[Rfam]
RNA sequence: AAAAAAAAAAAACCUGGGUUUCCGUGCCAACGUUUAACUGUCUAUCUUAUAUAAAAUUUUUUUAUAAUUAGUAUUUUAUUGUUGUUAGAUGAUAAAACAUGAUUAAUACUUUAUGCGUGACUUAUCUUUUUAAUUAUUUUCAUAAUUUUUUUAAAUAAGACGGAUGGUCAAACAUUGGACACAAAAAUCAGGAUUUGUCUUUUU
Numbered sequence: 001a002a003a004a005a006a007a008a009a010a011a012a013c014c015u016g017g018g019u020u021u022c023c024g025u026g027c028c029a030a031c032g033u034u035u036a037a038c039u040g041u042c043u044a045u046c047u048u049a050u051a052u053a054a055a056a057u058u059u060u061u062u063u064a065u066a067a068u069u070a071g072u073a074u075u076u077u078a079u080u081g082u083u084g085u086u087a088g089a090u091g092a093u094a095a096a097a098c099a100u101g102a103u104u105a106a107u108a109c110u111u112u113a114u115g116c117g118u119g120a121c122u123u124a125u126c127u128u129u130u131u132a133a134u135u136a137u138u139u140u141c142a143u144a145a146u147u148u149u150u151u152u153a154a155a156u157a158a159g160a161c162g163g164a165u166g167g168u169c170a171a172a173c174a175u176u177g178g179a180c181a182c183a184a185a186a187a188u189c190a191g192g193a194u195u196u197g198u199c200u201u202u203u204u
Stems, first nucleotide, its partner, number of pairs: 027178004032173004037168007045160006
About this RNA:
MIR812 microRNA precursor family: a 204-nucleotide RNA sequence from Oryza barthii. Gene Ontology terms of the family: RISC complex and miRNA-mediated post-transcriptional gene silencing. Pairs were carried over by alignment from the consensus structure, which was predicted with RNAalifold. Taxonomically the source falls in Oryza (Eukaryota, Streptophyta, Poaceae, Oryzeae).